[Rfam]
The record is a 93-nucleotide sequence from Aquibacillus halophilus, which matches "c-di-GMP-I riboswitch aptamer" in Rfam. The family has 155 seed sequences and 5,092 matches in Rfam 15.1. The match comes from Rfam's covariance-model search (73 bits).
RNA sequence: AAUAGAGAAAGGCAAACUGUUUGAAAGAACAGGACGCAAAGCAAAGGGUCUAAAAUAAGGUCAAUUCCUUACCAUGAUCGCCUGGCUACCAAU
Numbered sequence: 001a002a003u004a005g006a007g008a009a010a011g012g013c014a015a016a017c018u019g020u021u022u023g024a025a026a027g028a029a030c031a032g033g034a035c036g037c038a039a040a041g042c043a044a045a046g047g048g049u050c051u052a053a054a055a056u057a058a059g060g061u062c063a064a065u066u067c068c069u070u071a072c073c074a075u076g077a078u079c080g081c082c083u084g085g086c087u088a089c090c091a092a093u
Stems, first nucleotide, its partner, number of pairs: 012037002017032006040087003045083003048078003056071005